[Rfam]
RNA sequence: UCCGUGGUGACGCGGAAUCUGAAGGAAGCUCUAGGCAAAUCCUCGGUCUGAGGGACACAAAUCACAUAUGAGGUUUUUAUUCUAGGACGAGUUUGCAUAACAAAACGAAGUCCAAAAUAUCCACGGAUGGGAUAAGAAUAAAUGUGGCAGAUAUGUGAGGAGAAAGCGAGUGAAC
Numbered sequence: 001u002c003c004g005u006g007g008u009g010a011c012g013c014g015g016a017a018u019c020u021g022a023a024g025g026a027a028g029c030u031c032u033a034g035g036c037a038a039a040u041c042c043u044c045g046g047u048c049u050g051a052g053g054g055a056c057a058c059a060a061a062u063c064a065c066a067u068a069u070g071a072g073g074u075u076u077u078u079a080u081u082c083u084a085g086g087a088c089g090a091g092u093u094u095g096c097a098u099a100a101c102a103a104a105a106c107g108a109a110g111u112c113c114a115a116a117a118u119a120u121c122c123a124c125g126g127a128u129g130g131g132a133u134a135a136g137a138a139u140a141a142a143u144g145u146g147g148c149a150g151a152u153a154u155g156u157g158a159g160g161a162g163a164a165a166g167c168g169a170g171u172g173a174a175c
Stems, first nucleotide, its partner, number of pairs: 001016006028175001030173002035167002040161006046152005062147006073139003077135007085113004091106004